[Rfam]
RNA sequence: GGGGAGCCUGGUCAACUUGGCCCAGACCUCAGCUAUAUAGCUGAUGGGCUGAGUCAGAGGGCCGAGACUCUCC
Number, nucleotide and partner (000 for none) at each position: 001g073002g072003g071004g070005a069006g068007c000008c000009u065010g063011g062012u061013c060014a000015a000016c059017u058018u056019g055020g054021c053022c000023c051024a050025g049026a000027c047028c046029u044030c043031a042032g041033c040034u039035a000036u000037a000038u000039a034040g033041c032042u031043g030044a029045u000046g028047g027048g000049c025050u024051g023052a000053g021054u020055c019056a018057g000058a017059g016060g013061g012062c011063c010064g000065a009066g000067a000068c006069u005070c004071u003072c002073c001
The record is a 73-nucleotide RNA from Felis catus, which matches "mir-631 microRNA precursor family" in Rfam. On this family, see Brameier, BMC Res Notes 2010: "Genome-wide comparative analysis of microRNAs in three non-human primates". It scores 67 bits against the family's covariance model. Pairs were carried over by alignment from the consensus structure, which was predicted with RNAalifold. The source organism's lineage runs through Eukaryota, Chordata, Dipnotetrapodomorpha, Mammalia and Felis.